[Rfam]
RNA sequence: AAACAACUGAUUAGUAUUUGAAAAAAUAGGGCCCUGAAAAAAUGUCCAAUAUAUCUGAUUCCAGGGCCCUAAUAGGAAGAGGGAGAGGUUGGGUUUUAGUGGGUCUGGAUGUCCUAGUAUCUGGACAUCAAUCCCACACUCCCCAUUGCAAAGGUUUUUACAAUUGGGGUCUUUGGAAGAUUUAACCCUCUCCAC
Numbered sequence: 001a002a003a004c005a006a007c008u009g010a011u012u013a014g015u016a017u018u019u020g021a022a023a024a025a026a027u028a029g030g031g032c033c034c035u036g037a038a039a040a041a042a043u044g045u046c047c048a049a050u051a052u053a054u055c056u057g058a059u060u061c062c063a064g065g066g067c068c069c070u071a072a073u074a075g076g077a078a079g080a081g082g083g084a085g086a087g088g089u090u091g092g093g094u095u096u097u098a099g100u101g102g103g104u105c106u107g108g109a110u111g112u113c114c115u116a117g118u119a120u121c122u123g124g125a126c127a128u129c130a131a132u133c134c135c136a137c138a139c140u141c142c143c144c145a146u147u148g149c150a151a152a153g154g155u156u157u158u159u160a161c162a163a164u165u166g167g168g169g170u171c172u173u174u175g176g177a178a179g180a181u182u183u184a185a186c187c188c189u190c191u192c193c194a195c
Base pairs, nucleotide, nucleotide: 030068031067032066033065034064035063082193083192084191085190086189088186089185090184099137100136101135102134103133108129109128110127111126112125113124139169140168141167142166
Dot-bracket structure: .............................((((((...........................)))))).............(((((.(((........(((((....((((((..........))))))...))))).((((.......................))))..............)))..)))))..